[Rfam]
RNA: MAT2A 3'UTR stem loop F
RNA sequence: UAUGGCAACUUGGACUUGGCUGGUGUGAUACAGAGAAGCCAGCUUGUUUACAUGCUUAUUCCAUG
Numbered sequence: 001u002a003u004g005g006c007a008a009c010u011u012g013g014a015c016u017u018g019g020c021u022g023g024u025g026u027g028a029u030a031c032a033g034a035g036a037a038g039c040c041a042g043c044u045u046g047u048u049u050a051c052a053u054g055c056u057u058a059u060u061c062c063a064u065g
Stems, first nucleotide, its partner, number of pairs: 001065005007059001008057001011054001013048003018044007025031002